[Rfam]
RNA sequence: CAAAACGCUGCUCCGAACAAUCGGAACCAAACGAUGAAACGUUGUCCGGAGC
Number, nucleotide and partner (000 for none) at each position: 001c000002a000003a000004a000005a000006c000007g000008c000009u000010g000011c051012u050013c049014c048015g047016a000017a045018c044019a043020a042021u041022c000023g000024g000025a000026a000027c000028c000029a000030a000031a000032c000033g000034a000035u000036g000037a000038a000039a000040c000041g021042u020043u019044g018045u017046c000047c015048g014049g013050a012051g011052c000
Source information: Rfam assigns this 52-nucleotide RNA from Paenibacillus sp. HGH0039 to the family "uup RNA". Rfam classes the family as a cis-regulatory element. Taxonomically the source falls in Paenibacillus (Bacteria, Bacilli, Caryophanales, Paenibacillaceae).